[Rfam]
RNA sequence: CCGACCGAAACAUGUCGAAGCAUGACCUCUGCCGAGGUAGUCCGUGGGGUAGAGAGACUGAUUGGAGGCCCCGCCCCCGAGAGGGGUCGGACCUCCUGUCAAACUCCGAACUCACGGACGCCGUGGACGCAGGGAGUCCGCUGUGCGGGGUAAGCCUGUGCAGCAUGAGGGAGACAACCCAGAGCUGGGUUAAGGUCCCCAAGUGUGGACUAAGUGCGAUUGAAGGUAGUCCCGAGCCCUAGACAGCCGGGAGGUGAGCUUAGAAGCAGCUACCCUCUAAGAAAAGCGUAACAGCUUACCGGCCGAGGUUCGGGGCGCCCAAAAUGAUCGGGGCUCAAGUCCACCACCGAGACCUAGCGGCACGCCUUACAGCGUGGUUCCGUAGGUCGGCACUCCGGUUGGGUGGAAGCACGGACGAGAGUUCGUGUGGACCGACUGGUGAAGAUAAU
Numbered sequence: 001c002c003g004a005c006c007g008a009a010a011c012a013u014g015u016c017g018a019a020g021c022a023u024g025a026c027c028u029c030u031g032c033c034g035a036g037g038u039a040g041u042c043c044g045u046g047g048g049g050u051a052g053a054g055a056g057a058c059u060g061a062u063u064g065g066a067g068g069c070c071c072c073g074c075c076c077c078c079g080a081g082a083g084g085g086g087u088c089g090g091a092c093c094u095c096c097u098g099u100c101a102a103a104c105u106c107c108g109a110a111c112u113c114a115c116g117g118a119c120g121c122c123g124u125g126g127a128c129g130c131a132g133g134g135a136g137u138c139c140g141c142u143g144u145g146c147g148g149g150g151u152a153a154g155c156c157u158g159u160g161c162a163g164c165a166u167g168a169g170g171g172a173g174a175c176a177a178c179c180c181a182g183a184g185c186u187g188g189g190u191u192a193a194g195g196u197c198c199c200c201a202a203g204u205g206u207g208g209a210c211u212a213a214g215u216g217c218g219a220u221u222g223a224a225g226g227u228a229g230u231c232c233c234g235a236g237c238c239c240u241a242g243a244c245a246g247c248c249g250g251g252a253g254g255u256g257a258g259c260u261u262a263g264a265a266g267c268a269g270c271u272a273c274c275c276u277c278u279a280a281g282a283a284a285a286g287c288g289u290a291a292c293a294g295c296u297u298a299c300c301g302g303c304c305g306a307g308g309u310u311c312g313g314g315g316c317g318c319c320c321a322a323a324a325u326g327a328u329c330g331g332g333g334c335u336c337a338a339g340u341c342c343a344c345c346a347c348c349g350a351g352a353c354c355u356a357g358c359g360g361c362a363c364g365c366c367u368u369a370c371a372g373c374g375u376g377g378u379u380c381c382g383u384a385g386g387u388c389g390g391c392a393c394u395c396c397g398g399u400u401g402g403g404u405g406g407a408a409g410c411a412c413g414g415a416c417g418a419g420a421g422u423u424c425g426u427g428u429g430g431a432c433c434g435a436c437u438g439g440u441g442a443a444g445a446u447a448a449u
Stems, first nucleotide, its partner, number of pairs: 001390006011024005026136001027134006036122003040119008052107001053105002060100003064096005073088001075086004140164009169180003184358007194348003203345001205344006225319003229316010246303005252276003257271003277281001282297001286295002359380002361376005391444001393441001395439008409428008
The record is a 449-nucleotide part of an RNA from Natronomonas pharaonis, which matches "Archaeal large subunit ribosomal RNA" in Rfam. Pairs were carried over by alignment from the consensus structure, which is taken from published work. For this family Rfam cites "Crystal structure of the ribosome at 5.5 A resolution" (Yusupov et al., Science, 2001). Its Rfam clan is "LSU clan". Rfam links the family to the GO terms structural constituent of ribosome and ribosome. The organism belongs to Natronomonas pharaonis, within Archaea.